Record summary: The record is an 88-nucleotide sequence from Usitatibacter palustris, which matches "Glycine riboswitch aptamer" in Rfam. A search with the family's covariance model found it, with a score of 62 bits. Gene Ontology term of the family: glycine biosynthetic process. Taxonomically the source falls in Usitatibacter (Bacteria, Pseudomonadati, Nitrosomonadales, Usitatibacteraceae).

RNA sequence: GCCAUCCGACCGGGAGAGAGCCUCGAAUCUGGGGCCGCCGAAGGGGUAGCACCCGCAAACUCUCAGGCAAAAGGACCGAUCGGAACCG
Numbered sequence: 001g002c003c004a005u006c007c008g009a010c011c012g013g014g015a016g017a018g019a020g021c022c023u024c025g026a027a028u029c030u031g032g033g034g035c036c037g038c039c040g041a042a043g044g045g046g047u048a049g050c051a052c053c054c055g056c057a058a059a060c061u062c063u064c065a066g067g068c069a070a071a072a073g074g075a076c077c078g079a080u081c082g083g084a085a086c087c088g
Base pairs, nucleotide, nucleotide: 006083007082008081009080011078012077013076020035021034022033023032037068038067039066040064041063044062045061046060050055